[Rfam]
RNA sequence: AAGCAAUGAUGAACUAAUGGUUGGUCCGUGUUGCUGAAGUCACUUGACGAUAUCACAACCACCUGAGCUU
Number, nucleotide and partner (000 for none) at each position: 001a070002a069003g068004c067005a000006a000007u000008g000009a000010u000011g000012a000013a000014c000015u000016a000017a000018u000019g000020g000021u000022u000023g000024g000025u000026c000027c000028g000029u000030g000031u000032u000033g000034c000035u000036g000037a000038a000039g000040u000041c000042a000043c000044u000045u000046g000047a000048c000049g000050a000051u000052a000053u000054c000055a000056c000057a000058a000059c000060c000061a000062c000063c000064u000065g000066a000067g004068c003069u002070u001
Rfam assigns this 70-nucleotide RNA sequence from Diploscapter pachys to the family "Small nucleolar RNA SNORD18". Pairs were carried over by alignment from the consensus structure, which was predicted with PFOLD. Its family is annotated with nucleolus and RNA processing in the Gene Ontology. Rfam classes the family as a C/D-box small nucleolar RNA. The family is grouped with related families in Rfam's "SNORD18 clan".